This 80-nucleotide sequence from Aquila chrysaetos belongs to the Rfam family "mir-27 microRNA precursor family".

[Rfam]
RNA sequence: CCGUGGGGCAGGGCUUAGCCCACCUGUGAACAGAGUUGGCACCCGCGUCAUGUUCACAGUGGCUAAGUUCCGCUCCCCGG
Numbered sequence: 001c002c003g004u005g006g007g008g009c010a011g012g013g014c015u016u017a018g019c020c021c022a023c024c025u026g027u028g029a030a031c032a033g034a035g036u037u038g039g040c041a042c043c044c045g046c047g048u049c050a051u052g053u054u055c056a057c058a059g060u061g062g063c064u065a066a067g068u069u070c071c072g073c074u075c076c077c078c079g080g
Base pairs, nucleotide, nucleotide: 011070012069013068014067015066016065017064018063019062020061026057027056028055029054030053031052032051
About this RNA: The literature on the family includes a 2005 paper in Genes Dev by Chen et al., "The developmental miRNA profiles of zebrafish as determined by small RNA cloning". The base pairs follow the family's consensus structure, which was predicted with RNAalifold.